[Rfam]
A member of the RNA family "tRNA" from Fidelibacterota bacterium MT.SAG.4, 73 nucleotides long. The base pairs follow the family's consensus structure, which is taken from published work. Rfam describes the family as follows. Transfer RNA (tRNA) molecules are approximately 80 nucleotides in length. Rfam links the family to the GO term triplet codon-amino acid adaptor activity.
RNA sequence: UCCUCGGUAGCUCAAUUGGCAGAGCGAGUGGCUGUUAACCACUAGGUUGGGGGUUCAAGUCCCUCCCGAGGAG
Number, nucleotide and partner (000 for none) at each position: 001u072002c071003c070004u069005c068006g067007g066008u000009a000010g025011c024012u023013c022014a000015a000016u000017u000018g000019g000020c000021a000022g013023a012024g011025c010026g000027a043028g042029u041030g040031g039032c000033u000034g000035u000036u000037a000038a000039c031040c030041a029042c028043u027044a000045g000046g000047u000048u000049g065050g064051g063052g062053g061054u000055u000056c000057a000058a000059g000060u000061c053062c052063c051064u050065c049066c007067c006068g005069a004070g003071g002072a001073g000